[Rfam]
RNA sequence: UUAAAGAUACUUGCGUCCAGUCCUAAAGCCGAGCGUGAUAAAACCGUCGCAGCAAAGGAGGGCGCCCCGCAGCGAUCCUGGGGGUGGUGAGAUUCCAAUGA
Numbered sequence: 001u002u003a004a005a006g007a008u009a010c011u012u013g014c015g016u017c018c019a020g021u022c023c024u025a026a027a028g029c030c031g032a033g034c035g036u037g038a039u040a041a042a043a044c045c046g047u048c049g050c051a052g053c054a055a056a057g058g059a060g061g062g063c064g065c066c067c068c069g070c071a072g073c074g075a076u077c078c079u080g081g082g083g084g085u086g087g088u089g090a091g092a093u094u095c096c097a098a099u100g101a
Stems, first nucleotide, its partner, number of pairs: 012098001013065006066084003070080003085097003

Shown here is a 101-nucleotide sequence, a member of the family "pemK RNA". It is one of the family's seed sequences.